[Rfam]
RNA: nrdJ RNA
Organism: Streptomyces poonensis
RNA sequence: ACCUGUCGCGGACGUGCAGCGGUGCCGCGACACAUGACAGAACACCGUGCCACGGAAACAAAGUGGCACUUCAGGGCGUU
Dot-bracket structure: ...((((((((.(((......)))))))))))..............(((((((.........)))))))...........